[Rfam]
RNA sequence: AUAAAAGGAAGUUCGACUAGGAUCGUCACAUCAAUAGCCAACGUCGAACGACCCCACAUCGUGUGGG
Numbered sequence: 001a002u003a004a005a006a007g008g009a010a011g012u013u014c015g016a017c018u019a020g021g022a023u024c025g026u027c028a029c030a031u032c033a034a035u036a037g038c039c040a041a042c043g044u045c046g047a048a049c050g051a052c053c054c055c056a057c058a059u060c061g062u063g064u065g066g067g
Stems, first nucleotide, its partner, number of pairs: 011049007025038002053067005
Annotation
This 67-nucleotide sequence from Pontibacillus chungwhensis belongs to the Rfam family "Bacillaceae-1 RNA". Pairs were carried over by alignment from the consensus structure, which is taken from published work.